[Rfam]
RNA sequence: AAAAAGGGCUUCUGCCGUGCGUGGCACGGGGGGGCCUCGCGGCCGCCCCCGCGGAAUCGACAUCAAGAGAUUUCGGAAGCACAAUUUUUGUAGAGCCGGGGUCGCCGGUAACCGCUUGUUCUGGCGCCCCG
Numbered sequence: 001a002a003a004a005a006g007g008g009c010u011u012c013u014g015c016c017g018u019g020c021g022u023g024g025c026a027c028g029g030g031g032g033g034g035c036c037u038c039g040c041g042g043c044c045g046c047c048c049c050c051g052c053g054g055a056a057u058c059g060a061c062a063u064c065a066a067g068a069g070a071u072u073u074c075g076g077a078a079g080c081a082c083a084a085u086u087u088u089u090g091u092a093g094a095g096c097c098g099g100g101g102u103c104g105c106c107g108g109u110a111a112c113c114g115c116u117u118g119u120u121c122u123g124g125c126g127c128c129c130c131g
Base pairs, nucleotide, nucleotide: 008080009079010078011077012076013026014025015024016023017022027051028050029049030048031047032046034043035042036041052075053074054073055072056071057070058069099129100128101127102126104125105124106123107122108121110120111119112118
Dot-bracket structure: .......((((((((((....)))))((((((.(((....)))..))))))(((((((..........))))))))))))..................((((.(((((.(((.....))))))))))))..